Shown here is a 210-nucleotide sequence from Histoplasma capsulatum, a member of the family "Small nucleolar RNA snR80". Gene Ontology terms of the family: nucleolus and RNA processing. On this family, see Schattner et al., Nucleic Acids Res 2004: "Genome-wide searching for pseudouridylation guide snoRNAs: analysis of the Saccharomyces cerevisiae genome". NCBI's taxonomy places the organism under Eukaryota, Pezizomycotina, Eurotiomycetidae, Ajellomycetaceae, Histoplasma capsulatum.
[Rfam]
RNA sequence: UCGCCUUUGCCAACACUCUGGCCCUUACCACCCUGUUCUCUGGGAAAUGUUACCUACGGUAAAGGCCUAUUUUGGUGCAAAGAAGAUAGAAGCAUUGACCAACUACUCACCGCGGUAUCUUUUUGGAAAUUAAGUAUUUUCGUUUCCCGUUCGCGGGAAGUGGAGGGCUUGAUUAAGUGGAUAUGGUGGUCCAUCUUUUGUGGUCAACAU
Dot-bracket structure: ......(((..........((((..((((.(((........))).............))))..))))..........)))................((((.........((((.((((((..........................................................)))))).))))............)))).....
Overview: Rfam classes the family as an H/ACA-box small nucleolar RNA. A search with the family's covariance model found it, with a score of 44 bits. Its Rfam clan is "SNORA28 clan".